[Rfam]
RNA sequence: AGUGGGGGUGAGAAACUGGCUUGGCUUAUAUGUAAAACGACAGUCAGUCUUUUUCUCUCUCCUAUC
Numbered sequence: 001a002g003u004g005g006g007g008g009u010g011a012g013a014a015a016c017u018g019g020c021u022u023g024g025c026u027u028a029u030a031u032g033u034a035a036a037a038c039g040a041c042a043g044u045c046a047g048u049c050u051u052u053u054u055c056u057c058u059c060u061c062c063u064a065u066c
Stems, first nucleotide, its partner, number of pairs: 002065007010057004015052001018049004024044003